[Rfam]
PyrR binding site: a 136-nucleotide RNA sequence from Siminovitchia fortis. The literature on the family includes a 2001 paper in Nucleic Acids Res by Bonner et al., "Molecular recognition of pyr mRNA by the Bacillus subtilis attenuation regulatory protein PyrR". A search with the family's covariance model found it, with a score of 54 bits. The source organism's lineage runs through Bacteria, Bacillati, Bacilli, Caryophanales and Siminovitchia. Rfam describes the family as follows. This family represents the PyrR binding site and terminator structure. This RNA structure is found upstream of a variety of genes involved in pyrimidine biosynthesis and transport. By type it is a cis-regulatory element.
RNA sequence: GGUACCUUUAAUUCAGUCCCGUGAGGCUGGCAAGGACAACGGAUAUAUGAAGCGGUGAGCGAGAAAUAUCAUUUUCGCCAUUGUUUCAUGUAGAGACAGGCUUCUUGUCGGAAAAAACGGCAGGAGGCCUUUUUCU
Numbered sequence: 001g002g003u004a005c006c007u008u009u010a011a012u013u014c015a016g017u018c019c020c021g022u023g024a025g026g027c028u029g030g031c032a033a034g035g036a037c038a039a040c041g042g043a044u045a046u047a048u049g050a051a052g053c054g055g056u057g058a059g060c061g062a063g064a065a066a067u068a069u070c071a072u073u074u075u076c077g078c079c080a081u082u083g084u085u086u087c088a089u090g091u092a093g094a095g096a097c098a099g100g101c102u103u104c105u106u107g108u109c110g111g112a113a114a115a116a117a118c119g120g121c122a123g124g125a126g127g128c129c130u131u132u133u134u135c136u
Base pairs, nucleotide, nucleotide: 005035006034007033008032013030014029015028016027017026018025046090047089048088049087050086051085052084053083054082055081056080057079098130099129100128101127102126103125104124105123106122107121108120109119110118